[Rfam]
RNA sequence: GUCAGGAUGGCCGAGUUUUCUAAGGCGCCAGACUCAAGGUGAGAAGCCUUCCUGGUUGUAGGGGUGUUCUGGUCUCCGAUUGGAGGCGAGGGUUCAAAUCCCUCUUCUGACA
Numbered sequence: 001g002u003c004a005g006g007a008u009g010g011c012c013g014a015g016u017u018u019u020c021u022a023a024g025g026c027g028c029c030a031g032a033c034u035c036a037a038g039g040u041g042a043g044a045a046g047c048c049u050u051c052c053u054g055g056u057u058g059u060a061g062g063g064g065u066g067u068u069c070u071g072g073u074c075u076c077c078g079a080u081u082g083g084a085g086g087c088g089a090g091g092g093u094u095c096a097a098a099u100c101c102c103u104c105u106u107c108u109g110a111c112a
Stems, first nucleotide, its partner, number of pairs: 001111007010026003028072005088104005

tRNA: a 112-nucleotide sequence from Salmo trutta.
Rfam classes the family as a transfer RNA.
Pairs were carried over by alignment from the consensus structure, which is taken from published work.
A search with the family's covariance model found it, with a score of 45 bits.